[Rfam]
RNA sequence: ACUCUAUUAUUGACCUCAAUCCACAUGUAUUGAUGUGGAUUGGGGUGUAACUUAAACUAAUUUACACUCCAAUCUACAUCAACACAUGUGGAUUGAGGUCAAUACUAGA
Numbered sequence: 001a002c003u004c005u006a007u008u009a010u011u012g013a014c015c016u017c018a019a020u021c022c023a024c025a026u027g028u029a030u031u032g033a034u035g036u037g038g039a040u041u042g043g044g045g046u047g048u049a050a051c052u053u054a055a056a057c058u059a060a061u062u063u064a065c066a067c068u069c070c071a072a073u074c075u076a077c078a079u080c081a082a083c084a085c086a087u088g089u090g091g092a093u094u095g096a097g098g099u100c101a102a103u104a105c106u107a108g109a
Stems, first nucleotide, its partner, number of pairs: 004108003008104007016096013030082003035077009045067003
Shown here is a 109-nucleotide RNA from Zea mays, a member of the family "MIR5565 microRNA precursor family".
The base pairs follow the family's consensus structure, which was predicted with RNAalifold.
It scores 97 bits against the family's covariance model.
The organism belongs to Zea, within Eukaryota.